[Rfam]
RNA: Bacterial RNase P class A
Organism: Sporanaerobacter sp. PP17-6a
Nucleotides: 394
Stems, first nucleotide, its partner, number of pairs: 001390010012359007020034006039377003043374005048258004055293004060254005065079005080094001081092004095249002100247002102243003116189002118185005123178002126175001197216002200213002202210001218238001219236007262315004272304004284298005322341008
Number, partner (000 for none) and nucleotide at each position: 001390u002389g003388a004387g005386u006385a007384a008383g009382u010381c011000a012359g013358a014357u015356a016355g017354u018353c019000g020034c021033g022032u023031g024030u025029a026000a027000u028000u029025u030024a031023c032022a033021u034020g035000a036000g037000g038000a039377a040376a041375g042000u043374c044373c045372g046371a047370g048258c049257u050256c051255c052000u053000u054000a055293g056292g057291g058290c059000a060254g061253g062252a063251u064250g065079c066078u067077g068076g069075g070000c071000a072000a073000u074000a075069c076068c077067c078066a079065g080094u081092g082091g083090g084089g085000g086000u087000g088000a089084c090083c091082c092081c093000a094080a095249g096248g097000a098000a099000a100247g101246u102243g103242c104241a105000a106000c107000a108000g109000a110000a111000a112000u113000a114000u115000a116189c117188c118185g119184c120183c121182a122181g123178a124177g125000c126175c127000c128000u129000u130000u131000u132000u133000c134000g135000g136000c137000a138000a139000c140000c141000a142000u143000a144000c145000u146000g147000a148000a149000u150000u151000u152000g153000u154000g155000g156000u157000g158000a159000g160000a161000g162000c163000a164000g165000u166000g167000a168000a169000a170000u171000g172000u173000g174000a175126g176000a177124c178123u179000g180000a181122c182121u183120g184119g185118c186000a187000a188117g189116g190000a191000u192000g193000g194000a195000a196000a197216g198215g199000c200213g201212a202210g203000u204000u205000a206000a207000a208000a209000g210202c211000u212201u213200c214000a215198c216197c217000a218238g219236c220235a221234a222233u223232u224231a225230g226000g227000c228000g229000a230225c231224u232223a233222a234221u235220u236219g237000g238218c239000u240000c241104u242103g243102u244000a245000a246101a247100c248096c249095c250064c251063a252062u253061c254060u255051g256050g257049a258048g259000c260000a261000a262315g263314a264313c265312c266000a267000a268000g269000u270000u271000a272304a273303g274302g275301a276000u277000a278000a279000a280000u281000a282000g283000a284298g285297c286296a287295g288294u289000g290058g291057c292056c293055c294288g295287c296286u297285g298284c299000u300000u301275u302274c303273c304272u305000a306000a307000u308000g309000g310000u311000a312265g313264g314263u315262c316000g317000c318000a319000a320000g321000a322341a323340c324339c325338u326337a327336u328335u329334g330000g331000c332000a333000a334329c335328a336327a337326u338325a339324g340323g341322u342000c343000a344000u345000a346000g347000a348000u349000a350000g351000a352000u353018g354017g355016c356015u357014a358013u359012c360000u361000a362000a363000u364000a365000c366000a367000g368000a369000a370047c371046u372045c373044g374043g375041c376040u377039u378000a379000c380000a381010g382009a383008c384007u385006u386005a387004c388003u389002c390001g391000a392000a393000u394000u